[Rfam]
RNA: Eukaryotic small subunit ribosomal RNA, nucleotides 613 to 1143
RNA sequence: ACGUUAAAAAGCUCGUAGUCGAACUUCGGCCUCUGGCAGUUGGUCCGCCUUUUGGUGUGUACUGAUUUGUUGGAGGCUUACCUCUUGGUGAACUUCAAUGCACUUUACUGGGUGUUGGAGGGAACCAGGACUUUUACUUUGAAAAAAUUAGAGUGUUCAAAGCAGGCUUAUGCCUGAAUACAUUAGCAUGGAAUAAUAAAAUAGGACGUGUGAUUCUAUUUUGUUGGUUUCUAGGAUUACCGUAAUGAUGAAUAGGGUCAGUUGGGGGCAUUUGUAUUACAUCGUCAGAGGUGAAAUUCUUGGAUUGAUGUAAGACAAACUACUGCGAAAGCAUCUGCCAAGGAUGACUUCAUUGAUCAAGAACGAAGGUUAAGGGUUCAAAAACGAUCAGAUACCGUUGUAGUCUUAACAGUAAACUAUGCCGACUGGGGAUCAGACAAGGAUUUAUAAUGACUUGUUUGGCACCCAAAGGGAAACCUGAAGUUUAGGUUCGUGGGGGAGUACGGUCACAAGGCUGAAACUUAAAGGAAU
Numbered sequence: 001a002c003g004u005u006a007a008a009a010a011g012c013u014c015g016u017a018g019u020c021g022a023a024c025u026u027c028g029g030c031c032u033c034u035g036g037c038a039g040u041u042g043g044u045c046c047g048c049c050u051u052u053u054g055g056u057g058u059g060u061a062c063u064g065a066u067u068u069g070u071u072g073g074a075g076g077c078u079u080a081c082c083u084c085u086u087g088g089u090g091a092a093c094u095u096c097a098a099u100g101c102a103c104u105u106u107a108c109u110g111g112g113u114g115u116u117g118g119a120g121g122g123a124a125c126c127a128g129g130a131c132u133u134u135u136a137c138u139u140u141g142a143a144a145a146a147a148u149u150a151g152a153g154u155g156u157u158c159a160a161a162g163c164a165g166g167c168u169u170a171u172g173c174c175u176g177a178a179u180a181c182a183u184u185a186g187c188a189u190g191g192a193a194u195a196a197u198a199a200a201a202u203a204g205g206a207c208g209u210g211u212g213a214u215u216c217u218a219u220u221u222u223g224u225u226g227g228u229u230u231c232u233a234g235g236a237u238u239a240c241c242g243u244a245a246u247g248a249u250g251a252a253u254a255g256g257g258u259c260a261g262u263u264g265g266g267g268g269c270a271u272u273u274g275u276a277u278u279a280c281a282u283c284g285u286c287a288g289a290g291g292u293g294a295a296a297u298u299c300u301u302g303g304a305u306u307g308a309u310g311u312a313a314g315a316c317a318a319a320c321u322a323c324u325g326c327g328a329a330a331g332c333a334u335c336u337g338c339c340a341a342g343g344a345u346g347a348c349u350u351c352a353u354u355g356a357u358c359a360a361g362a363a364c365g366a367a368g369g370u371u372a373a374g375g376g377u378u379c380a381a382a383a384a385c386g387a388u389c390a391g392a393u394a395c396c397g398u399u400g401u402a403g404u405c406u407u408a409a410c411a412g413u414a415a416a417c418u419a420u421g422c423c424g425a426c427u428g429g430g431g432a433u434c435a436g437a438c439a440a441g442g443a444u445u446u447a448u449a450a451u452g453a454c455u456u457g458u459u460u461g462g463c464a465c466c467c468a469a470a471g472g473g474a475a476a477c478c479u480g481a482a483g484u485u486u487a488g489g490u491u492c493g494u495g496g497g498g499g500a501g502u503a504c505g506g507u508c509a510c511a512a513g514g515c516u517g518a519a520a521c522u523u524a525a526a527g528g529a530a531u
Base pairs, nucleotide, nucleotide: 001494002493003492009491011364013362014361018357019356020355255351256350257349259346260345262343263342267339268338269337270336273317274316277313278312279311280310281309282308283307284306288299289298290297325332326331369410370409371408372407373406374405379403383399384398385397386396421490422489423488424485425484426483428467429466430465433462434461435460436459437458438457439456440455442454444452471478472477496523497522498521505516506515507514508513